[Rfam]
Rfam assigns this 105-nucleotide RNA sequence from Bacillus licheniformis to the family "TPP riboswitch aptamer (THI element)". The organism belongs to Bacillus licheniformis, within Bacteria. The base pairs follow the family's consensus structure, which is taken from published work.

RNA sequence: GAAGUCCACUAGGGGAGCCGUAAGCCGGCUGAGACAAGAAGCGAUCUUGGACCCUUUGAACCUGAUCUAGUUCAUACUAGCGUAGGGAAGUGGAGCCGGUGUCUU
Numbered sequence: 001g002a003a004g005u006c007c008a009c010u011a012g013g014g015g016a017g018c019c020g021u022a023a024g025c026c027g028g029c030u031g032a033g034a035c036a037a038g039a040a041g042c043g044a045u046c047u048u049g050g051a052c053c054c055u056u057u058g059a060a061c062c063u064g065a066u067c068u069a070g071u072u073c074a075u076a077c078u079a080g081c082g083u084a085g086g087g088a089a090g091u092g093g094a095g096c097c098g099g100u101g102u103c104u105u
Stems, first nucleotide, its partner, number of pairs: 006093005011055004017029004036048004061086004067080004